Description:
This 57-nucleotide RNA sequence from Quang Binh virus belongs to the Rfam family "Insect-Specific Flavivirus 3' UTR repeats Ra". A reference for the family is Hoshino et al. (2007), "Genetic characterization of a new insect flavivirus isolated from Culex pipiens mosquito in Japan", Virology. Clan: Insect-Specific Flavivirus 3' UTR repeats Ra and Rb elements. Rfam describes the family as follows. 3' UTR in insect specific flavivirus families present three to four repeats of conserved element Ra. The sequence is in the family's curated seed alignment.
RNA sequence: GCCCACGCAAGGGGAGGCAUCAUAUUGCCUCCGGGUGCUGACGACACCCCGUCCCCA
Numbered sequence: 001g002c003c004c005a006c007g008c009a010a011g012g013g014g015a016g017g018c019a020u021c022a023u024a025u026u027g028c029c030u031c032c033g034g035g036u037g038c039u040g041a042c043g044a045c046a047c048c049c050c051g052u053c054c055c056c057a
Base pairs, nucleotide, nucleotide: 005052006051007050013032014031015030016029017028018027033049034048035047036046037045